[Rfam]
RNA sequence: UGCUCCGGUGCCGCGGGCGGUCUCCCCAAGAAGAACUCCGGGGCUAAAGGACCCGACCCAACCCCACCCCUCCCUCCCGGCGCGCAAACUCACCCACGAGGGUGAAAUGCACCAACUGGGUUGGCAUGUCGGAUGGUUGUGCGCUUUAGGCUCAGCGCGACAGAACGACCGCCGCAGAAAUGCGACGGCCCCCGCCGGGAGUAGCGAGCUCCCAUUGGCGAGGGCCUGACCACCCAGGAAGAAAGCACCUUCCCG
Numbered sequence: 001u002g003c004u005c006c007g008g009u010g011c012c013g014c015g016g017g018c019g020g021u022c023u024c025c026c027c028a029a030g031a032a033g034a035a036c037u038c039c040g041g042g043g044c045u046a047a048a049g050g051a052c053c054c055g056a057c058c059c060a061a062c063c064c065c066a067c068c069c070c071u072c073c074c075u076c077c078c079g080g081c082g083c084g085c086a087a088a089c090u091c092a093c094c095c096a097c098g099a100g101g102g103u104g105a106a107a108u109g110c111a112c113c114a115a116c117u118g119g120g121u122u123g124g125c126a127u128g129u130c131g132g133a134u135g136g137u138u139g140u141g142c143g144c145u146u147u148a149g150g151c152u153c154a155g156c157g158c159g160a161c162a163g164a165a166c167g168a169c170c171g172c173c174g175c176a177g178a179a180a181u182g183c184g185a186c187g188g189c190c191c192c193c194g195c196c197g198g199g200a201g202u203a204g205c206g207a208g209c210u211c212c213c214a215u216u217g218g219c220g221a222g223g224g225c226c227u228g229a230c231c232a233c234c235c236a237g238g239a240a241g242a243a244a245g246c247a248c249c250u251u252c253c254c255g
Stems, first nucleotide, its partner, number of pairs: 007234004016077002019074001090105006120156005187226005193220003197213004237253005

Source information:
This 255-nucleotide sequence from Streptomyces yokosukanensis belongs to the Rfam family "Streptomyces sRNA 4677". It is annotated as a small RNA. The pairing is the family consensus, mapped onto this sequence. The literature on the family includes a 2014 paper in PLoS One by Hindra et al., "Complex intra-operonic dynamics mediated by a small RNA in Streptomyces coelicolor". From the family's description: Located in the intergenic region between anti-sigma factor SCO4677 gene and a putative regulatory protein gene SCO4676. scr4677 expression requires the SCO4677 activity and scr4677 sRNA itself seem to affect the levels of the SCO4676-associated transcripts.